[Rfam]
RNA: traJ-II RNA
RNA sequence: GGGCAAGAUAGGUGAAGUUAGCUAACCAGCGAGCUGGUCAUCAAACUUCACGAGCCUUAUUCGCACCUUCGGUGCUCAACGGAAAGCUCGCGCUUUGAGGUC
Dot-bracket structure: (.((.((.(..((((((.(.(...(((((....)))))...).).))))))...((......(((((...))))).....))..).)).)).).........
Numbered sequence: 001g002g003g004c005a006a007g008a009u010a011g012g013u014g015a016a017g018u019u020a021g022c023u024a025a026c027c028a029g030c031g032a033g034c035u036g037g038u039c040a041u042c043a044a045a046c047u048u049c050a051c052g053a054g055c056c057u058u059a060u061u062c063g064c065a066c067c068u069u070c071g072g073u074g075c076u077c078a079a080c081g082g083a084a085a086g087c088u089c090g091c092g093c094u095u096u097g098a099g100g101u102c
Stems, first nucleotide, its partner, number of pairs: 001093001003091002006088002009085001012051006019044001021042001025038005055082002063075005